Shown here is a 544-nucleotide part of an RNA from Dyadobacter helix, a member of the family "Bacterial large subunit ribosomal RNA". The match comes from Rfam's covariance-model search (2700 bits). Rfam links the family to the GO terms ribosome and structural constituent of ribosome. The source organism's lineage runs through Bacteria, Bacteroidota, Cytophagales, Spirosomataceae and Dyadobacter.

RNA sequence: GAAUUAAGGGCGCAUGGGGGAUACCUAGGCUCUCAGAGGCGAUGAAGGACGUGAUAAGCUGCGAUAAGCUUCGGGUAUUGGCACAUACAAAUUGAUCCGAAGAUUUCCGAAUGGGGCAACCCAGUGUAGUGAAGCUACAUUACCCUACGGGGGGCAAACGCGGGGAACUGAAACAUCUAAGUACCCGCAGGAGAAGAAAAUAACAAUGAUUGCGCAAGUAGUGGCGAGCGAACGCGCAGGAGCCCAAACCGUGCUGGUUACGGCCAGUGCGGGGUUGUAGGACUCACCGAGUGUAUAACAAAAGAACUGGAAUGGCAUGGGAAGGCCAAUCGAAGAGGGUGAGAAUCCCGUACAGGUAAUUGCGUUAUAUGAGUGAGUAUCCUGAGUAGGUGGGGACCGGUGGAAUCCCCUCUGAACCAGGCGGCACCAUCCGCCAAGGCUAAAUACUCCUGAGAGACCGAUAGUGAACGAGUACCGUGAGGGAAAGGUGAAAAGUACCGCGAGCAGCGGGGUGAAAUAGAACUUGAAACCAUGCGCUUACAAG
Numbered sequence: 001g002a003a004u005u006a007a008g009g010g011c012g013c014a015u016g017g018g019g020g021a022u023a024c025c026u027a028g029g030c031u032c033u034c035a036g037a038g039g040c041g042a043u044g045a046a047g048g049a050c051g052u053g054a055u056a057a058g059c060u061g062c063g064a065u066a067a068g069c070u071u072c073g074g075g076u077a078u079u080g081g082c083a084c085a086u087a088c089a090a091a092u093u094g095a096u097c098c099g100a101a102g103a104u105u106u107c108c109g110a111a112u113g114g115g116g117c118a119a120c121c122c123a124g125u126g127u128a129g130u131g132a133a134g135c136u137a138c139a140u141u142a143c144c145c146u147a148c149g150g151g152g153g154g155c156a157a158a159c160g161c162g163g164g165g166a167a168c169u170g171a172a173a174c175a176u177c178u179a180a181g182u183a184c185c186c187g188c189a190g191g192a193g194a195a196g197a198a199a200a201u202a203a204c205a206a207u208g209a210u211u212g213c214g215c216a217a218g219u220a221g222u223g224g225c226g227a228g229c230g231a232a233c234g235c236g237c238a239g240g241a242g243c244c245c246a247a248a249c250c251g252u253g254c255u256g257g258u259u260a261c262g263g264c265c266a267g268u269g270c271g272g273g274g275u276u277g278u279a280g281g282a283c284u285c286a287c288c289g290a291g292u293g294u295a296u297a298a299c300a301a302a303a304g305a306a307c308u309g310g311a312a313u314g315g316c317a318u319g320g321g322a323a324g325g326c327c328a329a330u331c332g333a334a335g336a337g338g339g340u341g342a343g344a345a346u347c348c349c350g351u352a353c354a355g356g357u358a359a360u361u362g363c364g365u366u367a368u369a370u371g372a373g374u375g376a377g378u379a380u381c382c383u384g385a386g387u388a389g390g391u392g393g394g395g396a397c398c399g400g401u402g403g404a405a406u407c408c409c410c411u412c413u414g415a416a417c418c419a420g421g422c423g424g425c426a427c428c429a430u431c432c433g434c435c436a437a438g439g440c441u442a443a444a445u446a447c448u449c450c451u452g453a454g455a456g457a458c459c460g461a462u463a464g465u466g467a468a469c470g471a472g473u474a475c476c477g478u479g480a481g482g483g484a485a486a487g488g489u490g491a492a493a494a495g496u497a498c499c500g501c502g503a504g505c506a507g508c509g510g511g512g513u514g515a516a517a518u519a520g521a522a523c524u525u526g527a528a529a530c531c532a533u534g535c536g537c538u539u540a541c542a543a544g
Stems, first nucleotide, its partner, number of pairs: 008539010023524001024488002028459002030456007037448002039155002047108003050063003069102007078090003113122003123141007143152003159190001160188005170177002200207002210444001211238005221229002241441004249272007279383003283377005293370007302361002307355003313328004331335001337349003389413002392410005420435005475482002498510004